[Rfam]
RNA sequence: CCCUUAUUCAGAGUGAUGGAGAUACAUAGGAUCUGUGAAGUCACGGCAACCCCUGUUAAUCGCGGAUGCGAGAGGGCAGGAAGGUGCCAGCCUGAGCGAGAAAUCGAGCAAUAAGAG
Numbered sequence: 001c002c003c004u005u006a007u008u009c010a011g012a013g014u015g016a017u018g019g020a021g022a023u024a025c026a027u028a029g030g031a032u033c034u035g036u037g038a039a040g041u042c043a044c045g046g047c048a049a050c051c052c053c054u055g056u057u058a059a060u061c062g063c064g065g066a067u068g069c070g071a072g073a074g075g076g077c078a079g080g081a082a083g084g085u086g087c088c089a090g091c092c093u094g095a096g097c098g099a100g101a102a103a104u105c106g107a108g109c110a111a112u113a114a115g116a117g
Base pairs, nucleotide, nucleotide: 001117003115004114005113006112007111008110013044014043015042016041017040021033022032023031027096030093045088046087047086048085050084051083052080053079054078055077056076057075097106098105099104
Background:
Rfam assigns this 117-nucleotide RNA sequence from Eubacteriaceae bacterium Marseille-Q4139 to the family "SAM riboswitch aptamer (S box leader)". The organism belongs to Eubacteriaceae, within Bacteria.